[Rfam]
The record is a 306-nucleotide sequence from Betaproteobacteria bacterium SCN1, which matches "Bacterial RNase P class A" in Rfam. Its family is annotated with dimeric ribonuclease P complex, tRNA processing and ribonuclease P activity in the Gene Ontology. The family's RNA type in Rfam is ribozyme. Ribonuclease P (RNase P) is a ubiquitous endoribonuclease, found in archaea, bacteria and eukarya as well as chloroplasts and mitochondria.

RNA sequence: AAAGCCGGUCAGGCAGCCGCUGCUGCUGCCCCUCGGGGCAACAGGAGAGGAAAGUCCGGGCUCCACAGAGCAGGAUGACGGCUAACGGCCGUACGCCGCGAGGCGAGGAACAGGGCCACAGAGACGAGCAAACCCCCUCGGGGGUGGACGUGAAACGCGGUAACCUCCAUCCGGAGCAACACCAAAUAGGCGGACGAUGACGCUGCUCGCCGAGUCCGCGGGUAGGUGGCUUGAGCCGGCCAGCAAUGACCGGCCUAGAGGAAUGGUUGCCCACGACAGAACCCGGCUUAUCGGCCGACUUUCCCA
Numbered sequence: 001a002a003a004g005c006c007g008g009u010c011a012g013g014c015a016g017c018c019g020c021u022g023c024u025g026c027u028g029c030c031c032c033u034c035g036g037g038g039c040a041a042c043a044g045g046a047g048a049g050g051a052a053a054g055u056c057c058g059g060g061c062u063c064c065a066c067a068g069a070g071c072a073g074g075a076u077g078a079c080g081g082c083u084a085a086c087g088g089c090c091g092u093a094c095g096c097c098g099c100g101a102g103g104c105g106a107g108g109a110a111c112a113g114g115g116c117c118a119c120a121g122a123g124a125c126g127a128g129c130a131a132a133c134c135c136c137c138u139c140g141g142g143g144g145u146g147g148a149c150g151u152g153a154a155a156c157g158c159g160g161u162a163a164c165c166u167c168c169a170u171c172c173g174g175a176g177c178a179a180c181a182c183c184a185a186a187u188a189g190g191c192g193g194a195c196g197a198u199g200a201c202g203c204u205g206c207u208c209g210c211c212g213a214g215u216c217c218g219c220g221g222g223u224a225g226g227u228g229g230c231u232u233g234a235g236c237c238g239g240c241c242a243g244c245a246a247u248g249a250c251c252g253g254c255c256u257a258g259a260g261g262a263a264u265g266g267u268u269g270c271c272c273a274c275g276a277c278a279g280a281a282c283c284c285g286g287c288u289u290a291u292c293g294g295c296c297g298a299c300u301u302u303c304c305c306a
Base pairs, nucleotide, nucleotide: 001302002301003300004299006297007296008295009294010293011291012271013270014269015268016267017266018265020047021046023044024043025042027040028039029038030037052289053288054287056286057285058284059283060282061176062175063174064173068208069207070206071205073172074171075170076169077168078092079091080090081089082088094105095104096103097102108167109166113165114164115161116160117159132145133144134143135142136141180228181227182226183225190219191218192217193216194215195214202210203209235254236253237252238251239250241248242247
NCBI's taxonomy places the organism under Bacteria, Pseudomonadati, Pseudomonadota, Betaproteobacteria.